RNA sequence: CGCGGGACGGCCCGCGCCGGUGGAGCUAUUCCGGGACGGCCCGG
Numbered sequence: 001c002g003c004g005g006g007a008c009g010g011c012c013c014g015c016g017c018c019g020g021u022g023g024a025g026c027u028a029u030u031c032c033g034g035g036a037c038g039g040c041c042c043g044g
Base pairs, nucleotide, nucleotide: 001016002015003014004013005012006011031044032043033042034041035040
Shown here is a 44-nucleotide RNA sequence from Albidovulum denitrificans, a member of the family "Guanidine-II riboswitch aptamer (mini-ykkC)". It scores 36 bits against the family's covariance model. The family has 72 seed sequences and 1,589 matches in Rfam 15.1. Taxonomically the source falls in Albidovulum (Bacteria, Pseudomonadati, Rhodobacterales, Paracoccaceae). The family's consensus secondary structure is taken from published work.